[Rfam]
RNA: Qrr RNA
Organism: Vibrio vulnificus
RNA sequence: CGACCCCUCGGGUCACCUAGCCAACUGACGUUGUUAGUGAACCUAGUGUUCACAAUUGAUAGCCAAUAGUGAAAUGACUGUUGGCUUUUUUUUG
Numbered sequence: 001c002g003a004c005c006c007c008u009c010g011g012g013u014c015a016c017c018u019a020g021c022c023a024a025c026u027g028a029c030g031u032u033g034u035u036a037g038u039g040a041a042c043c044u045a046g047u048g049u050u051c052a053c054a055a056u057u058g059a060u061a062g063c064c065a066a067u068a069g070u071g072a073a074a075u076g077a078c079u080g081u082u083g084g085c086u087u088u089u090u091u092u093u094g
Base pairs, nucleotide, nucleotide: 002014003013004012005011006010031062032061033060034059037053038052039051040050041049042048063084064083065082066081067080068079069078070077